[Rfam]
RNA sequence: GUGGGUUAUGGUGAUAUUUAUCCACAAACACUUUUGGGUAAAAUUGUCGGUGGGCUUUGUUGUAUCGCUGGUGUACUGGUGAUUGCCUUGCCGAUUCCAAUCAUUGUGAACAAC
Numbered sequence: 001g002u003g004g005g006u007u008a009u010g011g012u013g014a015u016a017u018u019u020a021u022c023c024a025c026a027a028a029c030a031c032u033u034u035u036g037g038g039u040a041a042a043a044u045u046g047u048c049g050g051u052g053g054g055c056u057u058u059g060u061u062g063u064a065u066c067g068c069u070g071g072u073g074u075a076c077u078g079g080u081g082a083u084u085g086c087c088u089u090g091c092c093g094a095u096u097c098c099a100a101u102c103a104u105u106g107u108g109a110a111c112a113a114c
Base pairs, nucleotide, nucleotide: 001114002113004111007108008107009106010105011104013102014101015100020095021094037077038076039075040074049063
This 114-nucleotide RNA from Hemibagrus wyckioides belongs to the Rfam family "Potassium channel RNA editing signal". The match comes from Rfam's covariance-model search (85 bits). From the family's description: This family represents a group of sequences related to the human potassium channel Kv1.1 hairpin element which directs the efficient modification of an adenosine to inosine by an adenosine deaminase acting on RNA (ADAR). The ADAR modification causes an isoleucine/valine recoding event which lies in the ion-conducting pore of the potassium channel. Taxonomically the source falls in Hemibagrus (Eukaryota, Chordata, Euteleostomi, Clupeocephala).